RNA sequence: GAAUCAAGUGAUGAAUUUGGAUUACAAAUUUCUCACGACGGUCGUCUGAGACACAUCGUGUCAAUUUUGAUGUAAUGAUCCAAUGUUUUCUGAUGAUU
Numbered sequence: 001g002a003a004u005c006a007a008g009u010g011a012u013g014a015a016u017u018u019g020g021a022u023u024a025c026a027a028a029u030u031u032c033u034c035a036c037g038a039c040g041g042u043c044g045u046c047u048g049a050g051a052c053a054c055a056u057c058g059u060g061u062c063a064a065u066u067u068u069g070a071u072g073u074a075a076u077g078a079u080c081c082a083a084u085g086u087u088u089u090c091u092g093a094u095g096a097u098u
Stems, first nucleotide, its partner, number of pairs: 001098002004095001052060003
RNA: Small nucleolar RNA Z161/Z228